[Rfam]
RNA sequence: UAGGAAUAAGAGCGAUGGCCUCAUAUAUGUUUGGGAAUAGGGCCCAAAUGUUUCUACCUGACAACCGUAAAUUGUUGGACUAUGAGGGGAAAGCUUUCUGUU
Numbered sequence: 001u002a003g004g005a006a007u008a009a010g011a012g013c014g015a016u017g018g019c020c021u022c023a024u025a026u027a028u029g030u031u032u033g034g035g036a037a038u039a040g041g042g043c044c045c046a047a048a049u050g051u052u053u054c055u056a057c058c059u060g061a062c063a064a065c066c067g068u069a070a071a072u073u074g075u076u077g078g079a080c081u082a083u084g085a086g087g088g089g090a091a092a093g094c095u096u097u098c099u100g101u102u
Base pairs, nucleotide, nucleotide: 019087020086021085022084023083024082025081029049030048031047032046033045034044035043058078059077060076061075062074063073064072
The record is a 102-nucleotide sequence from Pueribacillus theae, which matches "Purine riboswitch aptamer" in Rfam.